[Rfam]
RNA sequence: UUAAAAUUGAAUGGCGAUUGUCGGUAUGGUCGCUUUUUCACAAAAAAAUUGGUUACCAACAAGCGAAGUGACUAGACCGAACACUCGUGCUAUAAUUUUAAAA
Numbered sequence: 001u002u003a004a005a006a007u008u009g010a011a012u013g014g015c016g017a018u019u020g021u022c023g024g025u026a027u028g029g030u031c032g033c034u035u036u037u038u039c040a041c042a043a044a045a046a047a048a049u050u051g052g053u054u055a056c057c058a059a060c061a062a063g064c065g066a067a068g069u070g071a072c073u074a075g076a077c078c079g080a081a082c083a084c085u086c087g088u089g090c091u092a093u094a095a096u097u098u099u100a101a102a103a
Stems, first nucleotide, its partner, number of pairs: 011093006019083003022079003027074005033068002
Source information:
mir-286 microRNA precursor family: a 103-nucleotide RNA from Drosophila ananassae. It is one of the family's seed sequences. Its family is annotated with miRNA-mediated post-transcriptional gene silencing and RISC complex in the Gene Ontology. The family's consensus secondary structure was predicted with RNAalifold. The organism belongs to ananassae species complex, within Eukaryota.